Shown here is a 477-nucleotide part of an RNA from Carlito syrichta, a member of the family "Eukaryotic large subunit ribosomal RNA".

[Rfam]
RNA sequence: GAUGUGUUGCCAUGGUGAUCCUGCUCAGUAUGAGAGGAACUGCAGGUUCAGACAUUUGGUGCAUGUCCUUGGCUGAGGAGUCAAUGGGGCGAAGCUACCAUCUGUGGGAUUAUGACUGAAUUCCUCUAAGUUUGAAUCCCACCCAGGUGGAAUGAUAUGACAGCACUGCAGAGCCUCGGUUGGCCUCGAAUAGCUGGUCCCCUGCCGUCUCCGCUGACAGGAUGCCCCAUCCCCACAGAGGGGCAUGCCCUGGACAUGCUGGGACUGGGGUCUGGUGCAGAGAGCCCCUUAUCCUGUGACAUGGGUUGUGGCUGGAAAGGUGGCCGCCCCCUUGCCCAUCAUGCACCACAUGUUCGUGGGGAACCUGGUGCUAAACCAUUCAUAGACGACCUGUUUCUGGGUCAGGGUUUUGUAUGUGGUAGAGCAGCUCCCUCACUGUGACUUAUUGAAAGUCAGCCCUUGGACACAAGGGAUUGU
Numbered sequence: 001g002a003u004g005u006g007u008u009g010c011c012a013u014g015g016u017g018a019u020c021c022u023g024c025u026c027a028g029u030a031u032g033a034g035a036g037g038a039a040c041u042g043c044a045g046g047u048u049c050a051g052a053c054a055u056u057u058g059g060u061g062c063a064u065g066u067c068c069u070u071g072g073c074u075g076a077g078g079a080g081u082c083a084a085u086g087g088g089g090c091g092a093a094g095c096u097a098c099c100a101u102c103u104g105u106g107g108g109a110u111u112a113u114g115a116c117u118g119a120a121u122u123c124c125u126c127u128a129a130g131u132u133u134g135a136a137u138c139c140c141a142c143c144c145a146g147g148u149g150g151a152a153u154g155a156u157a158u159g160a161c162a163g164c165a166c167u168g169c170a171g172a173g174c175c176u177c178g179g180u181u182g183g184c185c186u187c188g189a190a191u192a193g194c195u196g197g198u199c200c201c202c203u204g205c206c207g208u209c210u211c212c213g214c215u216g217a218c219a220g221g222a223u224g225c226c227c228c229a230u231c232c233c234c235a236c237a238g239a240g241g242g243g244c245a246u247g248c249c250c251u252g253g254a255c256a257u258g259c260u261g262g263g264a265c266u267g268g269g270g271u272c273u274g275g276u277g278c279a280g281a282g283a284g285c286c287c288c289u290u291a292u293c294c295u296g297u298g299a300c301a302u303g304g305g306u307u308g309u310g311g312c313u314g315g316a317a318a319g320g321u322g323g324c325c326g327c328c329c330c331c332u333u334g335c336c337c338a339u340c341a342u343g344c345a346c347c348a349c350a351u352g353u354u355c356g357u358g359g360g361g362a363a364c365c366u367g368g369u370g371c372u373a374a375a376c377c378a379u380u381c382a383u384a385g386a387c388g389a390c391c392u393g394u395u396u397c398u399g400g401g402u403c404a405g406g407g408u409u410u411u412g413u414a415u416g417u418g419g420u421a422g423a424g425c426a427g428c429u430c431c432c433u434c435a436c437u438g439u440g441a442c443u444u445a446u447u448g449a450a451a452g453u454c455a456g457c458c459c460u461u462g463g464a465c466a467c468a469a470g471g472g473a474u475u476g477u
Base pairs, nucleotide, nucleotide: 005154006153007152008151010149013145014144015143018048020046021045022044023043024042049104050103051102052101057097058096059095064091065090066089067088068087069084070083071082072081073080074079106140107139108138114132115131116130117129162369167367168366373475374474376472377471378394379393399467401465402464403463405459406458407457409452410451416446417445418444419443424439425438426437427436
The organism belongs to Carlito, within Eukaryota.